This 86-nucleotide RNA sequence from Yoonia sediminilitoris belongs to the Rfam family "Glycine riboswitch aptamer". Pairs were carried over by alignment from the consensus structure.
RNA sequence: GCAUCGUCGUUGGGAGAAUCAGACCAACUGGUGCCGAAGGAGCAACCGCCCCGGAAACUCUCAGGCCAACGGACCAGCGUCGAUAA
Numbered sequence: 001g002c003a004u005c006g007u008c009g010u011u012g013g014g015a016g017a018a019u020c021a022g023a024c025c026a027a028c029u030g031g032u033g034c035c036g037a038a039g040g041a042g043c044a045a046c047c048g049c050c051c052c053g054g055a056a057a058c059u060c061u062c063a064g065g066c067c068a069a070c071g072g073a074c075c076a077g078c079g080u081c082g083a084u085a086a
Stems, first nucleotide, its partner, number of pairs: 006081001008079006019031004033066003036062002040060003046054002

From the family's description: This family represents the bacterial glycine riboswitch. The match comes from Rfam's covariance-model search (55 bits).